Rfam assigns this 70-nucleotide RNA from Runella slithyformis to the family "tRNA". About the family: Transfer RNA (tRNA) molecules are approximately 80 nucleotides in length. Pairs were carried over by alignment from the consensus structure, which is taken from published work.
RNA sequence: GAUUGUGUAGUGUAGUGGCCGGCACGCGGAUUUGCGCACCGAGGUAUGGGUUCGACCCCCAUCACAAUCA
Numbered sequence: 001g002a003u004u005g006u007g008u009a010g011u012g013u014a015g016u017g018g019c020c021g022g023c024a025c026g027c028g029g030a031u032u033u034g035c036g037c038a039c040c041g042a043g044g045u046a047u048g049g050g051u052u053c054g055a056c057c058c059c060c061a062u063c064a065c066a067a068u069c070a
Base pairs, nucleotide, nucleotide: 001069002068003067004066005065006064007063010025011024012023013022027041028040029039046062047061048060049059050058